[Rfam]
RNA sequence: GAUCCCCACGCGGGAGAGCCCGGACCGGAGCCAUCGGUCCGGCGCCGAAGGAGCAACUCCUCCCCGGAACCUCUCAGGCCAAGCGGACCGUGUGGGCAGA
Numbered sequence: 001g002a003u004c005c006c007c008a009c010g011c012g013g014g015a016g017a018g019c020c021c022g023g024a025c026c027g028g029a030g031c032c033a034u035c036g037g038u039c040c041g042g043c044g045c046c047g048a049a050g051g052a053g054c055a056a057c058u059c060c061u062c063c064c065c066g067g068a069a070c071c072u073c074u075c076a077g078g079c080c081a082a083g084c085g086g087a088c089c090g091u092g093u094g095g096g097c098a099g100a
Base pairs, nucleotide, nucleotide: 006095007094008093009092010091011090012089013088020042021041022040023039024038025037026036027035028034044079045078046077047075048074051073052072053071057067058066
The family of this 100-nucleotide sequence from Crossiella cryophila is "Glycine riboswitch aptamer".
The match comes from Rfam's covariance-model search (63 bits).
Rfam describes the family as follows. This family represents the bacterial glycine riboswitch.